Record summary: Rfam assigns this 245-nucleotide sequence from Lachnospiraceae bacterium OF09-33XD to the family "T-box leader". It scores 94 bits against the family's covariance model. From the family's description: Uncharged tRNA acts as the effector for transcription antitermination of genes in the T-box leader family.

RNA sequence: AGAAAGGCAAUGAAGGGAACCAGUAACAGAAGGAAAGCAGACAGAGAGCAGCCGGAAGCUGAGAGGCGCGUGCGGAACUUUUGCGAAUACAUCCCCAAGCCCCGCACCGAACGGAGUACAAGUAGGCUGCGGCGUGUUGACGGACGUUAUCAGCGUCAGGGUAUGACAGUACCCGCUGAGGCAGCCGGCUGUGAAGCGGCUGUGAAUUUAGGUGGUAACACGGAAGUAGAGCUUUCGUCCUAUGU
Numbered sequence: 001a002g003a004a005a006g007g008c009a010a011u012g013a014a015g016g017g018a019a020c021c022a023g024u025a026a027c028a029g030a031a032g033g034a035a036a037g038c039a040g041a042c043a044g045a046g047a048g049c050a051g052c053c054g055g056a057a058g059c060u061g062a063g064a065g066g067c068g069c070g071u072g073c074g075g076a077a078c079u080u081u082u083g084c085g086a087a088u089a090c091a092u093c094c095c096c097a098a099g100c101c102c103c104g105c106a107c108c109g110a111a112c113g114g115a116g117u118a119c120a121a122g123u124a125g126g127c128u129g130c131g132g133c134g135u136g137u138u139g140a141c142g143g144a145c146g147u148u149a150u151c152a153g154c155g156u157c158a159g160g161g162u163a164u165g166a167c168a169g170u171a172c173c174c175g176c177u178g179a180g181g182c183a184g185c186c187g188g189c190u191g192u193g194a195a196g197c198g199g200c201u202g203u204g205a206a207u208u209u210a211g212g213u214g215g216u217a218a219c220a221c222g223g224a225a226g227u228a229g230a231g232c233u234u235u236c237g238u239c240c241u242a243u244g245u
Base pairs, nucleotide, nucleotide: 007100008099015095016094017093018092027083028082029081030080031079037073038072039071048069049068051067052066053065103131104130105129106128107126108125133146134145135144181203182202183201184200185199186198187197209242210241211240212239220238221237222236223235224234225233226232